RNA sequence: GGGAGUGUAGCGAAGUCUGGCUAAACGCGACGGACUGUAAAUCCGUUCCUUCGGGUUCGUAGGUUCGAAUCCUACCGCUCCCA
Numbered sequence: 001g002g003g004a005g006u007g008u009a010g011c012g013a014a015g016u017c018u019g020g021c022u023a024a025a026c027g028c029g030a031c032g033g034a035c036u037g038u039a040a041a042u043c044c045g046u047u048c049c050u051u052c053g054g055g056u057u058c059g060u061a062g063g064u065u066c067g068a069a070u071c072c073u074a075c076c077g078c079u080c081c082c083a
Stems, first nucleotide, its partner, number of pairs: 001082007010028003030046005059075005
RNA: tRNA